[Rfam]
RNA sequence: GUGUCAUGGUCAUUGUUGACCGUUCAUAUGAACCCUGCAAUAACAUUGCAACUUGUGUGGGGUUCAUAUAACGGUCAACUGAGACCUUUGACAU
Numbered sequence: 001g002u003g004u005c006a007u008g009g010u011c012a013u014u015g016u017u018g019a020c021c022g023u024u025c026a027u028a029u030g031a032a033c034c035c036u037g038c039a040a041u042a043a044c045a046u047u048g049c050a051a052c053u054u055g056u057g058u059g060g061g062g063u064u065c066a067u068a069u070a071a072c073g074g075u076c077a078a079c080u081g082a083g084a085c086c087u088u089u090g091a092c093a094u
Stems, first nucleotide, its partner, number of pairs: 001094006008086004013081001015079010026069014042053001
Rfam assigns this 94-nucleotide RNA from Medicago truncatula to the family "MIR2587 microRNA precursor family". It is one of the family's seed sequences. The base pairs follow the family's consensus structure, which was predicted with RNAalifold. The organism belongs to Medicago, within Eukaryota.